A member of the RNA family "c-di-AMP riboswitch aptamer (ydaO/yuaA leader)" from Psychrobacillus sp. FJAT-21963, 145 nucleotides long. Rfam links the family to the GO terms regulation of gene expression and cyclic-di-AMP binding. The base pairs follow the family's consensus structure.
RNA sequence: AUUUCUAAAUCGCUUAAUUCAUUAGAAACGGGGGAACCAUUUGUGGCAUUUAUGCCGCGUGGGGUGAAUCCUAUGAAUGUAGGUAGGGCUACUCUAUUGGCCCAAAUCCGACAGCUAACCUCGUAAGCGUUCUGAGAGAGGAAUU
Numbered sequence: 001a002u003u004u005c006u007a008a009a010u011c012g013c014u015u016a017a018u019u020c021a022u023u024a025g026a027a028a029c030g031g032g033g034g035a036a037c038c039a040u041u042u043g044u045g046g047c048a049u050u051u052a053u054g055c056c057g058c059g060u061g062g063g064g065u066g067a068a069u070c071c072u073a074u075g076a077a078u079g080u081a082g083g084u085a086g087g088g089c090u091a092c093u094c095u096a097u098u099g100g101c102c103c104a105a106a107u108c109c110g111a112c113a114g115c116u117a118a119c120c121u122c123g124u125a126a127g128c129g130u131u132c133u134g135a136g137a138g139a140g141g142a143a144u145u
Base pairs, nucleotide, nucleotide: 011129012128013127014126018027019026020025028124029123030122031121032120033119038061039060062109063108064107070083071082072081073080086103087102088101089100